[Rfam]
RNA sequence: AAUUAUAUUUGGCAAAGCCAGAGAAAUCUGGUGACGCAAAGCUAUAGGGUCCGAAAGGACAGCCAGUUGCAUUU
Numbered sequence: 001a002a003u004u005a006u007a008u009u010u011g012g013c014a015a016a017g018c019c020a021g022a023g024a025a026a027u028c029u030g031g032u033g034a035c036g037c038a039a040a041g042c043u044a045u046a047g048g049g050u051c052c053g054a055a056a057g058g059a060c061a062g063c064c065a066g067u068u069g070c071a072u073u074u
Stems, first nucleotide, its partner, number of pairs: 012037002017032006040068004047064002049060003